[Rfam]
RNA sequence: UUUACCGUGAGGUAUGCAGUGAAGGAAGCCAAACGGCAAACUCCGGUACUGACGAACAGGAACCUGAUAUGAGGCUACGAGGUUGGAUAAGCAAGCACAUCAUUGUGACGUCCGAAAGCCCUUUGCGGGGAGAUAACCGAAAUAGUAGAUCAGGCAGCGAUUGGAGGAAGGAACAUGUU
Dot-bracket structure: (.((((....)))).)...........(.((.....(...(((((((.(((...........((((((.....(((....((((((((..((((........))))...)))).....................)))).....)))..))))))))).).))))))....)....)).)
Description: Group II catalytic intron D1-D4-3: a 179-nucleotide RNA from Draconibacterium aestuarii. Rfam links the family to the GO term Group II intron splicing. The pairing is the family consensus, mapped onto this sequence. Taxonomically the source falls in Draconibacterium (Bacteria, Pseudomonadati, Bacteroidota, Bacteroidia). Group II introns are found in rRNA, tRNA and mRNA of organelles in fungi, plants and protists, and also in mRNA in bacteria.